Notes:
The record is an 81-nucleotide sequence from Bombyx mori, which matches "mir-2807 microRNA precursor family" in Rfam.
RNA sequence: UUAACUCAAAUUUGUAUGGAGUCGGAACAGCGCCCCUAGUGGCAAAGGGAAGCUGUUUUAAAUCCAUACAAAUUUGAGUUA
Numbered sequence: 001u002u003a004a005c006u007c008a009a010a011u012u013u014g015u016a017u018g019g020a021g022u023c024g025g026a027a028c029a030g031c032g033c034c035c036c037u038a039g040u041g042g043c044a045a046a047g048g049g050a051a052g053c054u055g056u057u058u059u060a061a062a063u064c065c066a067u068a069c070a071a072a073u074u075u076g077a078g079u080u081a
Base pairs, nucleotide, nucleotide: 008075009074010073011072012071013070014069015068016067018065020063022061024059025058026057027056028055029054034049035048036047040046